[Rfam]
DUF805 RNA: a 68-nucleotide RNA from Mariniphaga sediminis.
RNA sequence: AAAUAGUGGAGACCAGAAAUCACUAUAAAAACGGGGCGUUACCGAAAAGCCAAAUGAGUAGGGAGUAG
Numbered sequence: 001a002a003a004u005a006g007u008g009g010a011g012a013c014c015a016g017a018a019a020u021c022a023c024u025a026u027a028a029a030a031a032c033g034g035g036g037c038g039u040u041a042c043c044g045a046a047a048a049g050c051c052a053a054a055u056g057a058g059u060a061g062g063g064a065g066u067a068g
Base pairs, nucleotide, nucleotide: 006023007022008021009020035051036050037049042063043062
The source organism's lineage runs through Bacteria, Bacteroidota, Bacteroidia, Prolixibacteraceae and Mariniphaga. The family has 46 seed sequences and 281 matches in Rfam 15.1. The match comes from Rfam's covariance-model search (78 bits). It is annotated as a cis-regulatory element. Clan: DUF805 clan.